The record is a 70-nucleotide RNA sequence from Canis lupus, which matches "Small nucleolar RNA SNORD30" in Rfam.
A reference for the family is Tycowski et al. (1996), "A mammalian gene with introns instead of exons generating stable RNA products", Nature.
Rfam links the family to the GO terms RNA processing and nucleolus.
The family has 20 seed sequences and 367 matches in Rfam 15.1.
By type it is a C/D-box small nucleolar RNA.
The family is grouped with related families in Rfam's "SNORD30 clan".
Rfam's curators put it in the seed alignment.
NCBI's taxonomy places the organism under Eukaryota, Eumetazoa, Deuterostomia, Euteleostomi, Canis lupus.
RNA sequence: AUCCAUGAUGACUUAUGUGGAAUCUCGUUCGGCUGAUAACUUGCUGUUGAGACUCGGAAUUCUGACUUUC
Numbered sequence: 001a002u003c004c005a006u007g008a009u010g011a012c013u014u015a016u017g018u019g020g021a022a023u024c025u026c027g028u029u030c031g032g033c034u035g036a037u038a039a040c041u042u043g044c045u046g047u048u049g050a051g052a053c054u055c056g057g058a059a060u061u062c063u064g065a066c067u068u069u070c
Stems, first nucleotide, its partner, number of pairs: 023052005030046004